[Rfam]
RNA: SAM riboswitch aptamer (S box leader)
Organism: Planomicrobium sp. CPCC 101110
RNA sequence: AACUUAUCAAGAGAGACUGAGGGACAGGCCCGUCGACGUCCAGCAACCAUCAUUUUUUGUGAGAGGUGCUAAUUCCUGCAGAGGAUUUCCUCUGAGAGAUAAGAU
Number, nucleotide and partner (000 for none) at each position: 001a105002a000003c103004u102005u101006a100007u099008c098009a000010a000011g000012a000013g041014a000015g040016a039017c038018u000019g000020a000021g031022g030023g029024a000025c078026a077027g076028g075029c023030c022031c021032g000033u000034c000035g000036a000037c000038g017039u016040c015041c013042a070043g069044c068045a067046a000047c066048c065049a000050u062051c061052a060053u000054u000055u000056u000057u000058u000059g000060u052061g051062a050063g000064a000065g048066g047067u045068g044069c043070u042071a000072a000073u000074u097075c028076c027077u026078g025079c094080a093081g092082a091083g090084g089085a000086u000087u000088u000089c084090c083091u082092c081093u080094g079095a000096g000097a074098g008099a007100u006101a005102a004103g003104a000105u001